[Rfam]
RNA: c-di-AMP riboswitch aptamer (ydaO/yuaA leader)
RNA sequence: ACAGAUAUUAAGCCGAAUUCCCGGCACCGGGAAACGGGGGAACCAAUUUUGGGUGAAUUGAUCUCGCAACGGAGGGAUCAUAGGGAAACCUUCAAACCGAAUCCUUAAGCUAACCUCGCAGGCAUUGGAAGGAGUUUAA
Numbered sequence: 001a002c003a004g005a006u007a008u009u010a011a012g013c014c015g016a017a018u019u020c021c022c023g024g025c026a027c028c029g030g031g032a033a034a035c036g037g038g039g040g041a042a043c044c045a046a047u048u049u050u051g052g053g054u055g056a057a058u059u060g061a062u063c064u065c066g067c068a069a070c071g072g073a074g075g076g077a078u079c080a081u082a083g084g085g086a087a088a089c090c091u092u093c094a095a096a097c098c099g100a101a102u103c104c105u106u107a108a109g110c111u112a113a114c115c116u117c118g119c120a121g122g123c124a125u126u127g128g129a130a131g132g133a134g135u136u137u138a139a
Base pairs, nucleotide, nucleotide: 012123013122014121018033019032020031021030022029023028035118036117037116038115039114045049051104052103053102059080060079061078062077063076064075065074083098084097
Dot-bracket structure: ...........(((...((((((....)))))).(((((.....(...).(((.....(((((((........)))))))..((............))...))).........)))))..)))................